[Rfam]
RNA sequence: GGUUUCCGUUGGUGAAAACCGAAUUAGCUAAAUUUAAGAUGAGAACCAAUUAUCCAUUGGUAACAAAUGCUUAUCCAUUAAUCAGAGAAAAUUUUAU
Numbered sequence: 001g002g003u004u005u006c007c008g009u010u011g012g013u014g015a016a017a018a019c020c021g022a023a024u025u026a027g028c029u030a031a032a033u034u035u036a037a038g039a040u041g042a043g044a045a046c047c048a049a050u051u052a053u054c055c056a057u058u059g060g061u062a063a064c065a066a067a068u069g070c071u072u073a074u075c076c077a078u079u080a081a082u083c084a085g086a087g088a089a090a091a092u093u094u095u096a097u
Stems, first nucleotide, its partner, number of pairs: 009023002012020001053086002056078002059075005

Shown here is a 97-nucleotide sequence from Phtheirospermum japonicum, a member of the family "Plastid-rps12 3UTR RNA". A search with the family's covariance model found it, with a score of 90 bits. Rfam describes the family as follows. Plastid rpl20 is a non-coding RNA (ncRNA) recognised in plastids. It was found in the three prime untranslated region (3UTR) of rps12 gene, its 3UTR location sugest a role in transcript maduration. The organism belongs to Phtheirospermum, within Eukaryota. Pairs were carried over by alignment from the consensus structure, which was predicted with LocARNA. On this family, see Richter et al., Plant Commun 2023: "Retrograde signaling in plants: A critical review focusing on the GUN pathway and beyond".